[Rfam]
This 70-nucleotide RNA belongs to the Rfam family "Hepatitis C virus stem-loop VII". It is one of the family's seed sequences. The base pairs follow the family's consensus structure, which was predicted with RNAfold.
Nucleotides: 070
Base pairs, nucleotide, nucleotide: 006065009062012059013058014057015056016055017050018049019048020047021046027039028038029037030036
Number, partner (000 for none) and nucleotide at each position: 001000u002000a003000a004000g005000c006065u007000g008000c009062u010000a011000u012059c013058c014057c015056a016055g017050g018049g019048g020047g021046g022000g023000a024000g025000g026000g027039c028038c029037g030036c031000u032000a033000u034000a035000u036030g037029c038028g039027g040000a041000a042000a043000g044000u045000a046021c047020c048019u049018c050017u051000u052000c053000a054000a055016c056015u057014g058013g059012g060000c061000g062009g063000u064000g065006a066000a067000a068000a069000c070000c